Source information:
Shown here is a 73-nucleotide RNA sequence from Oryza barthii, a member of the family "Small nucleolar RNA U54". The family has 21 seed sequences and 614 matches in Rfam 15.1. The family's RNA type in Rfam is C/D-box small nucleolar RNA. It scores 72 bits against the family's covariance model. Taxonomically the source falls in Oryza (Eukaryota, Euphyllophyta, Liliopsida, Oryzoideae). The literature on the family includes a 2003 paper in Nucleic Acids Res by Chen et al., "The high diversity of snoRNAs in plants: identification and comparative study of 120 snoRNA genes from Oryza sativa".
RNA sequence: UGCUCAAUGAUUAAGCCAUGGCAAUAUACGCUAUUCUGAAUCAUAUUAAGAUGUCAUAAACAUUAUGAGAGCA
Numbered sequence: 001u002g003c004u005c006a007a008u009g010a011u012u013a014a015g016c017c018a019u020g021g022c023a024a025u026a027u028a029c030g031c032u033a034u035u036c037u038g039a040a041u042c043a044u045a046u047u048a049a050g051a052u053g054u055c056a057u058a059a060a061c062a063u064u065a066u067g068a069g070a071g072c073a
Base pairs, nucleotide, nucleotide: 001073002072003071004070005069